A member of the RNA family "Plasmid transferred anti-sense RNA" from Verminephrobacter eiseniae, 71 nucleotides long. Its family is annotated with mRNA binding and negative regulation of translation in the Gene Ontology. For this family Rfam cites "A novel family of plasmid-transferred anti-sense ncRNAs" (Findeiss et al., RNA Biol, 2010).

RNA sequence: UUGCCAUGAUUCACCUCUGUGGUAGGUGGGUUGUGGAAGUGUCGGCCGGCCCCACGCCGGCCGGCGCGCUU
Number, nucleotide and partner (000 for none) at each position: 001u000002u000003g000004c036005c035006a034007u000008g000009a031010u000011u000012c028013a027014c026015c025016u024017c000018u000019g000020u000021g000022g000023u000024a016025g015026g014027u013028g012029g000030g000031u009032u000033g000034u006035g005036g004037a000038a000039g067040u066041g065042u064043c063044g062045g061046c060047c059048g058049g057050c056051c000052c000053c000054a000055c000056g050057c049058c048059g047060g046061c045062c044063g043064g042065c041066g040067c039068g000069c000070u000071u000